[Rfam]
RNA: mir-9195 microRNA precursor family
RNA sequence: AGAGGCCUUCCGUGGCAGGGGUGGAACGCUUGCCUUGUCACCGUGGUGAUGAAGCAAGCAUUCUGCCAGGCCACUCACGCUGCCUGC
Numbered sequence: 001a002g003a004g005g006c007c008u009u010c011c012g013u014g015g016c017a018g019g020g021g022u023g024g025a026a027c028g029c030u031u032g033c034c035u036u037g038u039c040a041c042c043g044u045g046g047u048g049a050u051g052a053a054g055c056a057a058g059c060a061u062u063c064u065g066c067c068a069g070g071c072c073a074c075u076c077a078c079g080c081u082g083c084c085u086g087c
Stems, first nucleotide, its partner, number of pairs: 004084003012074005020067007028059006037050005